[Rfam]
RNA sequence: GGCUUUUUUCGCAGCGGAGCUCGACCGCCCACGGCAAUAAUCGUUGAGUACAUCGAUGCUUUCAGGCACCGCUUCGGGGUCGAGCCGAUCUGCCGCGUUCUCACCAAAAACGCCGGAAUAAAGAUCGCCCCG
Numbered sequence: 001g002g003c004u005u006u007u008u009u010c011g012c013a014g015c016g017g018a019g020c021u022c023g024a025c026c027g028c029c030c031a032c033g034g035c036a037a038u039a040a041u042c043g044u045u046g047a048g049u050a051c052a053u054c055g056a057u058g059c060u061u062u063c064a065g066g067c068a069c070c071g072c073u074u075c076g077g078g079g080u081c082g083a084g085c086c087g088a089u090c091u092g093c094c095g096c097g098u099u100c101u102c103a104c105c106a107a108a109a110a111c112g113c114c115g116g117a118a119u120a121a122a123g124a125u126c127g128c129c130c131c132g
Stems, first nucleotide, its partner, number of pairs: 014028004075132005086127002089124003
Dot-bracket structure: .............((((.......))))..............................................(((((......((.(((..............................))).)))))))

Rfam assigns this 132-nucleotide RNA sequence from Arthrobacter sp. CAU 1506 to the family "ALIL pseudoknot". The literature on the family includes a 2008 paper in J Biol Chem by Mazauric et al., "Apical loop-internal loop RNA pseudoknots: a new type of stimulator of -1 translational frameshifting in bacteria". A search with the family's covariance model found it, with a score of 63 bits.